RNA sequence: CAGGCAAAACAGACAGCCGCCGCGUGGCAACACGGGGAGGAAAGUCCGGGCUACACAGAGCACAAUGCCAGCUAACGGCUGGGCGUGGUAACACGACGGAAAGUGGCGCAGAGAGCAAGACCGCCGAUGGCGCAUCGCGCACAGGCAAGGGUGAAAAGGUGCGGUAAGAGCGCACCGUGCCGUUGGUAACAACGCGCAGCAGGCUAAACCCCAUUGGUAGCAAGACCAAACAGAACGCAUUGACGCUGCUCGCCGAGCGUUCGGGUAGGUUGCUUGAACUUUGUGGCAACGCAAAGUCUAGAUGAAUGGCUGUUCAACGACAGAACCCGGCUUAUCGUUUUACCUGCGCC
Numbered sequence: 001c002a003g004g005c006a007a008a009a010c011a012g013a014c015a016g017c018c019g020c021c022g023c024g025u026g027g028c029a030a031c032a033c034g035g036g037g038a039g040g041a042a043a044g045u046c047c048g049g050g051c052u053a054c055a056c057a058g059a060g061c062a063c064a065a066u067g068c069c070a071g072c073u074a075a076c077g078g079c080u081g082g083g084c085g086u087g088g089u090a091a092c093a094c095g096a097c098g099g100a101a102a103g104u105g106g107c108g109c110a111g112a113g114a115g116c117a118a119g120a121c122c123g124c125c126g127a128u129g130g131c132g133c134a135u136c137g138c139g140c141a142c143a144g145g146c147a148a149g150g151g152u153g154a155a156a157a158g159g160u161g162c163g164g165u166a167a168g169a170g171c172g173c174a175c176c177g178u179g180c181c182g183u184u185g186g187u188a189a190c191a192a193c194g195c196g197c198a199g200c201a202g203g204c205u206a207a208a209c210c211c212c213a214u215u216g217g218u219a220g221c222a223a224g225a226c227c228a229a230a231c232a233g234a235a236c237g238c239a240u241u242g243a244c245g246c247u248g249c250u251c252g253c254c255g256a257g258c259g260u261u262c263g264g265g266u267a268g269g270u271u272g273c274u275u276g277a278a279c280u281u282u283g284u285g286g287c288a289a290c291g292c293a294a295a296g297u298c299u300a301g302a303u304g305a306a307u308g309g310c311u312g313u314u315c316a317a318c319g320a321c322a323g324a325a326c327c328c329g330g331c332u333u334a335u336c337g338u339u340u341u342a343c344c345u346g347c348g349c350c
Stems, first nucleotide, its partner, number of pairs: 001346004006341005011335001012314007020037002023034004042333003046330005051220004058251004063216005068082005083097001084095004098211002103209002105205003121150002123146003128143002158176006177200001178198003181194005224271004233262006245253002278297008
The record is a 350-nucleotide RNA sequence from Kingella oralis, which matches "Bacterial RNase P class A" in Rfam. It scores 299 bits against the family's covariance model. The organism belongs to Kingella oralis, within Bacteria.